[Rfam]
RNA: RNase E 5' UTR element
RNA sequence: CUUUCCACGUUUUCGCGUCCAGGACGAGUAAUCGAGGAAUUUUGAAUUUGUCUGGUUCAGCCUAAACGCGGCAAUGGCGUAAGACGUAAUGGCUAAUCGGGCAGUUAGCGGGCUGCGGAUUGCAGCUUGGCCGGCAAAAGGAAUCCGUUCUGGCAAUAAUCAUCAGACGUUAUUCCCCUGUAAAAGUGCUGUUUUCCGUUAUGGGAAACAGGCUACCGAAAUAAUGCGCCCCUUAGCAAGCGACAACCGUGAGGUUGACGGCUUUGCGCCAAGUCACGGGGCCGUCGGUGAUUACCCGGCCAUGCGGUUUUUUGCCCGCAGCUCUGAUGCCAA
Numbered sequence: 001c002u003u004u005c006c007a008c009g010u011u012u013u014c015g016c017g018u019c020c021a022g023g024a025c026g027a028g029u030a031a032u033c034g035a036g037g038a039a040u041u042u043u044g045a046a047u048u049u050g051u052c053u054g055g056u057u058c059a060g061c062c063u064a065a066a067c068g069c070g071g072c073a074a075u076g077g078c079g080u081a082a083g084a085c086g087u088a089a090u091g092g093c094u095a096a097u098c099g100g101g102c103a104g105u106u107a108g109c110g111g112g113c114u115g116c117g118g119a120u121u122g123c124a125g126c127u128u129g130g131c132c133g134g135c136a137a138a139a140g141g142a143a144u145c146c147g148u149u150c151u152g153g154c155a156a157u158a159a160u161c162a163u164c165a166g167a168c169g170u171u172a173u174u175c176c177c178c179u180g181u182a183a184a185a186g187u188g189c190u191g192u193u194u195u196c197c198g199u200u201a202u203g204g205g206a207a208a209c210a211g212g213c214u215a216c217c218g219a220a221a222u223a224a225u226g227c228g229c230c231c232c233u234u235a236g237c238a239a240g241c242g243a244c245a246a247c248c249g250u251g252a253g254g255u256u257g258a259c260g261g262c263u264u265u266g267c268g269c270c271a272a273g274u275c276a277c278g279g280g281g282c283c284g285u286c287g288g289u290g291a292u293u294a295c296c297c298g299g300c301c302a303u304g305c306g307g308u309u310u311u312u313u314g315c316c317c318g319c320a321g322c323u324c325u326g327a328u329g330c331c332a333a
Base pairs, nucleotide, nucleotide: 003039004038005037006036008034014028016026017025018024048104049103050102051101052100053099054098055097059094060093061092062091066087067086068085071078072077110324111323112322113321114320115319116318117317118316120314128302129301130300131299132298133297134296140176141175142174143173144172149167150166151165152164153163185214186213187212189211190210191209192208194206195205196204197203215289216288217287218286219285228282229281230280231279232278241260242259244257245256246255247254248253